[Rfam]
Rfam assigns this 76-nucleotide RNA sequence from Alligator mississippiensis to the family "Mammalian CPEB3 ribozyme". NCBI's taxonomy places the organism under Eukaryota, Vertebrata, Dipnotetrapodomorpha, Tetrapoda, Alligator.
RNA sequence: GUUGCAAGUUCAAGGCCAUAGCAGAAGUGCUCAUAGCAUGGCCCUGUCAGAGUCUGAUGAAUCUGCAAAUUCUCCU
Number, nucleotide and partner (000 for none) at each position: 001g000002u000003u000004g000005c000006a000007a000008g000009u000010u000011c000012a000013a000014g043015g042016c041017c040018a000019u000020a076021g075022c000023a073024g072025a071026a070027g039028u038029g037030c000031u000032c000033a000034u000035a000036g000037c029038a028039u027040g017041g016042c015043c014044c000045u000046g000047u000048c065049a064050g063051a062052g000053u060054c059055u000056g000057a000058u000059g054060a053061a000062u051063c050064u049065g048066c000067a000068a000069a000070u026071u025072c024073u023074c000075c021076u020
The match comes from Rfam's covariance-model search (49 bits). Its family is annotated with RNA nuclease activity in the Gene Ontology. The base pairs follow the family's consensus structure, which is taken from published work.